[Rfam]
RNA sequence: UGGUAGAUGCACCCUGAUUCAACUCCCUCAAACUCGGCUCAUGGGUUUGAGGGUUUUUUGU
Numbered sequence: 001u002g003g004u005a006g007a008u009g010c011a012c013c014c015u016g017a018u019u020c021a022a023c024u025c026c027c028u029c030a031a032a033c034u035c036g037g038c039u040c041a042u043g044g045g046u047u048u049g050a051g052g053g054u055u056u057u058u059u060g061u
Base pairs, nucleotide, nucleotide: 002013003012004011025053026052027051028050029049030048031047032046033045034044035043
Rfam assigns this 61-nucleotide RNA sequence from Synechococcales cyanobacterium C42_A2020_086 to the family "Nitrogen stress-induced RNA 1".
The family has 17 seed sequences and 962 matches in Rfam 15.1.
The base pairs follow the family's consensus structure.
The source organism's lineage runs through Bacteria, Bacillati, Cyanobacteriota, Cyanophyceae and Synechococcales.